Shown here is a 75-nucleotide sequence from Streptomyces albus, a member of the family "ASpks TB sRNA". NCBI's taxonomy places the organism under Bacteria, Bacillati, Actinomycetes, Streptomyces, Streptomyces albus subsp. albus.
RNA sequence: CUUCAGCGAGCCCAGCCACAGCGGAUCGCCGCCGUCGCGGUCCUUGCCGUAGGUGGCGAGGAGCGCCCCGGCCUC
Numbered sequence: 001c002u003u004c005a006g007c008g009a010g011c012c013c014a015g016c017c018a019c020a021g022c023g024g025a026u027c028g029c030c031g032c033c034g035u036c037g038c039g040g041u042c043c044u045u046g047c048c049g050u051a052g053g054u055g056g057c058g059a060g061g062a063g064c065g066c067c068c069c070g071g072c073c074u075c
Base pairs, nucleotide, nucleotide: 014026016024017023032070038065039064043060044059045058047056048055049054
Annotation: The match comes from Rfam's covariance-model search (70 bits).